[Rfam]
RNA: eL15-Euryarchaeota ribosomal protein leader
RNA sequence: CGGGAUCCGUCCCGUUAAGGAAUGUAGCACGGAAACGUGCCGAACCUGAGG
Numbered sequence: 001c002g003g004g005a006u007c008c009g010u011c012c013c014g015u016u017a018a019g020g021a022a023u024g025u026a027g028c029a030c031g032g033a034a035a036c037g038u039g040c041c042g043a044a045c046c047u048g049a050g051g
Stems, first nucleotide, its partner, number of pairs: 001014005018047003027040005